A member of the RNA family "Rhodo-rpoB RNA", 91 nucleotides long. It is annotated as a cis-regulatory element.
RNA sequence: AGGUCGGGAGCUGCACAGUGGGAUGUGUGGCAAGAAUAGACCUCUCUAUCGCUGUCUCGUAGGGAUUAGCGCCGUGGCCCGACGGUGCUCG
Numbered sequence: 001a002g003g004u005c006g007g008g009a010g011c012u013g014c015a016c017a018g019u020g021g022g023a024u025g026u027g028u029g030g031c032a033a034g035a036a037u038a039g040a041c042c043u044c045u046c047u048a049u050c051g052c053u054g055u056c057u058c059g060u061a062g063g064g065a066u067u068a069g070c071g072c073c074g075u076g077g078c079c080c081g082a083c084g085g086u087g088c089u090c091g
Stems, first nucleotide, its partner, number of pairs: 001043005010031008066091001068089007